The record is a 69-nucleotide RNA from Oncorhynchus kisutch, which matches "miR-430 microRNA precursor family" in Rfam.

RNA sequence: AACAGCAACCCAAACAAAAGCAUUGACUGGUUUUAUCUGCAGUAAGUGCUUUUUGUUGGGUUAUCUGUU
Numbered sequence: 001a002a003c004a005g006c007a008a009c010c011c012a013a014a015c016a017a018a019a020g021c022a023u024u025g026a027c028u029g030g031u032u033u034u035a036u037c038u039g040c041a042g043u044a045a046g047u048g049c050u051u052u053u054u055g056u057u058g059g060g061u062u063a064u065c066u067g068u069u
Stems, first nucleotide, its partner, number of pairs: 005064001007062005014056005019050006026043003
Background
On this family, see Giraldez et al., Science 2005: "MicroRNAs regulate brain morphogenesis in zebrafish". The organism belongs to Oncorhynchus, within Eukaryota.